[Rfam]
The family of this 596-nucleotide part of an RNA from Sungouiella intermedia is "Eukaryotic large subunit ribosomal RNA".
Pairs were carried over by alignment from the consensus structure, which is taken from published work.

RNA sequence: CGCCCUCAAAUCAGGUAGGACUACCCGCUGAACUUAAGCAUAUCAAUAAGCGGAGGAAAAGAAACCAACAGGGAUUGCCUCAGUAACGGCGAGUGAAGCGGCAAAAGCUCAAAUUUGAAAUCCUUCGGGAGUUGUAAUUUGUAGGUUGGGAGACCCCGCGGCUAGUGGCACCAAGUCCCUUGGAACAGGGCGCCUUAGAGGGUGAGAGCCCCGUAGGUACCACAACACCGUCUUGUGUCUCCUCUCCAAAGAGUCGAGUUGUUUGGGAAUGCAGCUCAAAGUGGGUGGUAAAUUCCAUCUAAAGCUAAAUACCGGCGAGAGACCGAUAGCGAACAAGUACAGUGAUGGAAAGAUGAAAAGCACUUUGAAAAGAGAGUGAAACAGUACGUGAAAUUGUUGAAAGGGAAGGGCUUGCAAGCAGACACGGCCUUCGUGCCGGGCCAGCAUCGGUUGCUAGGGGUGGAUAAGGAACAAGGAAUGUAGCUCCUCGGAGUAUUAUAGCCUUGCGCGAUACACCCACUGGCGACCGAGGCCUGCGGUAUUCUUUACCUAGGAUGCUGGCGUAAUGGUUGCAAGCCGCCCGUCUUGAAACACGG
Numbered sequence: 001c002g003c004c005c006u007c008a009a010a011u012c013a014g015g016u017a018g019g020a021c022u023a024c025c026c027g028c029u030g031a032a033c034u035u036a037a038g039c040a041u042a043u044c045a046a047u048a049a050g051c052g053g054a055g056g057a058a059a060a061g062a063a064a065c066c067a068a069c070a071g072g073g074a075u076u077g078c079c080u081c082a083g084u085a086a087c088g089g090c091g092a093g094u095g096a097a098g099c100g101g102c103a104a105a106a107g108c109u110c111a112a113a114u115u116u117g118a119a120a121u122c123c124u125u126c127g128g129g130a131g132u133u134g135u136a137a138u139u140u141g142u143a144g145g146u147u148g149g150g151a152g153a154c155c156c157c158g159c160g161g162c163u164a165g166u167g168g169c170a171c172c173a174a175g176u177c178c179c180u181u182g183g184a185a186c187a188g189g190g191c192g193c194c195u196u197a198g199a200g201g202g203u204g205a206g207a208g209c210c211c212c213g214u215a216g217g218u219a220c221c222a223c224a225a226c227a228c229c230g231u232c233u234u235g236u237g238u239c240u241c242c243u244c245u246c247c248a249a250a251g252a253g254u255c256g257a258g259u260u261g262u263u264u265g266g267g268a269a270u271g272c273a274g275c276u277c278a279a280a281g282u283g284g285g286u287g288g289u290a291a292a293u294u295c296c297a298u299c300u301a302a303a304g305c306u307a308a309a310u311a312c313c314g315g316c317g318a319g320a321g322a323c324c325g326a327u328a329g330c331g332a333a334c335a336a337g338u339a340c341a342g343u344g345a346u347g348g349a350a351a352g353a354u355g356a357a358a359a360g361c362a363c364u365u366u367g368a369a370a371a372g373a374g375a376g377u378g379a380a381a382c383a384g385u386a387c388g389u390g391a392a393a394u395u396g397u398u399g400a401a402a403g404g405g406a407a408g409g410g411c412u413u414g415c416a417a418g419c420a421g422a423c424a425c426g427g428c429c430u431u432c433g434u435g436c437c438g439g440g441c442c443a444g445c446a447u448c449g450g451u452u453g454c455u456a457g458g459g460g461u462g463g464a465u466a467a468g469g470a471a472c473a474a475g476g477a478a479u480g481u482a483g484c485u486c487c488u489c490g491g492a493g494u495a496u497u498a499u500a501g502c503c504u505u506g507c508g509c510g511a512u513a514c515a516c517c518c519a520c521u522g523g524c525g526a527c528c529g530a531g532g533c534c535u536g537c538g539g540u541a542u543u544c545u546u547u548a549c550c551u552a553g554g555a556u557g558c559u560g561g562c563g564u565a566a567u568g569g570u571u572g573c574a575a576g577c578c579g580c581c582c583g584u585c586u587u588g589a590a591a592c593a594c595g596g
Base pairs, nucleotide, nucleotide: 024055025053026052027051028050029049035042036041065072066071076103077102078101079100086094087093106306107305108304109303112139113138114137115136118133119132121130122129123128144247145246148242149241151240152239153238154237158231159230160229161228165223166222167221168220170218171217175191177190178189179188180187194198201211202210256277257276258275259274260273261272262271283300284299285298286297287296340347341346363374364373365372366371409578410577411576412575413574414573415572416571417570419568420567425438426437427436428435442560443559444558445557446556447555448554581596582595583594584593
Annotation: Lineage of the source: Eukaryota > saccharomyceta > Serinales > Metschnikowiaceae > Sungouiella. Gene Ontology terms of the family: structural constituent of ribosome and ribosome.